This 66-nucleotide sequence from Mola mola belongs to the Rfam family "mir-33 microRNA precursor family". Gene Ontology terms of the family: RISC complex and gene silencing by miRNA. The literature on the family includes a 2010 paper in Mol Hum Reprod by Ahn et al., "MicroRNA transcriptome in the newborn mouse ovaries determined by massive parallel sequencing". It scores 52 bits against the family's covariance model.

RNA sequence: CUGUGGUGCAUUGUAGUUGCAUUGCAUGUCACGCUAACAGUGCAAUGGAUCUGCUUUGCAAUACAG
Numbered sequence: 001c002u003g004u005g006g007u008g009c010a011u012u013g014u015a016g017u018u019g020c021a022u023u024g025c026a027u028g029u030c031a032c033g034c035u036a037a038c039a040g041u042g043c044a045a046u047g048g049a050u051c052u053g054c055u056u057u058g059c060a061a062u063a064c065a066g
Stems, first nucleotide, its partner, number of pairs: 001066004006062001007060004013054004021046007